[Rfam]
RNA sequence: AGGCUUUUAAUUGAGCGCCGAAGCAAUGAAGCAAAAACAGGUUCUCCUGGCGUGUCCUGGUGCAGCAGAUGUUCCCUCCCUCAUCUGUCUGCGAUACGCCCUCCUUGCCUCGCUCGUCGACGCGACCAGCGAGGCAUUUU
Numbered sequence: 001a002g003g004c005u006u007u008u009a010a011u012u013g014a015g016c017g018c019c020g021a022a023g024c025a026a027u028g029a030a031g032c033a034a035a036a037a038c039a040g041g042u043u044c045u046c047c048u049g050g051c052g053u054g055u056c057c058u059g060g061u062g063c064a065g066c067a068g069a070u071g072u073u074c075c076c077u078c079c080c081u082c083a084u085c086u087g088u089c090u091g092c093g094a095u096a097c098g099c100c101c102u103c104c105u106u107g108c109c110u111c112g113c114u115c116g117u118c119g120a121c122g123c124g125a126c127c128a129g130c131g132a133g134g135c136a137u138u139u140u
Stems, first nucleotide, its partner, number of pairs: 049100008065088007107135008117125002
Notes
The record is a 140-nucleotide sequence from Sinorhizobium terangae, which matches "Rhizobiales sRNA Atu_C7" in Rfam. The base pairs follow the family's consensus structure, which was predicted with WAR. The family's RNA type in Rfam is small RNA. A reference for the family is Wilms et al. (2012), "Deep sequencing uncovers numerous small RNAs on all four replicons of the plant pathogen Agrobacterium tumefaciens", RNA Biol. Lineage of the source: Bacteria > Pseudomonadati > Alphaproteobacteria > Hyphomicrobiales > Sinorhizobium.